RNA sequence: UAGCAGUGUGACAUGCCCGUUUUGGUGAUAAUCUCUGAUUUAUUAUUAUUAUUUAAUUGUUUGGGAUAACAGGGUGUUACAAUGUU
Dot-bracket structure: .((((.((((((((.((.(((..............................................))).)))))))))).))))
Shown here is an 86-nucleotide RNA sequence from Medicago truncatula, a member of the family "MIR2617 microRNA precursor family". The family has 3 seed sequences and 1,174 matches in Rfam 15.1. The match comes from Rfam's covariance-model search (53 bits).